[Rfam]
RNA sequence: AUACCUUCUCGGCCUUUUGGCUAAGAUCAUGUGUAGUAUCUGUUCUAAUCAGUGUGAAAACUGAUUGACGCUCAAUGAGCGUCAUUUUCACACCUGUUUUUGAAAUCGCCGGGUUCGCACUGCUUGCAGUGUUCCGGCAGGAUUUCCUCGGCAUUCCACUACCGCCUUGUGAGGUCCGUCUCCU
Numbered sequence: 001a002u003a004c005c006u007u008c009u010c011g012g013c014c015u016u017u018u019g020g021c022u023a024a025g026a027u028c029a030u031g032u033g034u035a036g037u038a039u040c041u042g043u044u045c046u047a048a049u050c051a052g053u054g055u056g057a058a059a060a061c062u063g064a065u066u067g068a069c070g071c072u073c074a075a076u077g078a079g080c081g082u083c084a085u086u087u088u089c090a091c092a093c094c095u096g097u098u099u100u101u102g103a104a105a106u107c108g109c110c111g112g113g114u115u116c117g118c119a120c121u122g123c124u125u126g127c128a129g130u131g132u133u134c135c136g137g138c139a140g141g142a143u144u145u146c147c148u149c150g151g152c153a154u155u156c157c158a159c160u161a162c163c164g165c166c167u168u169g170u171g172a173g174g175u176c177c178g179u180c181u182c183c184u
Stems, first nucleotide, its partner, number of pairs: 007026003011022004047066006067083007109137005119130004140177006147169001150166003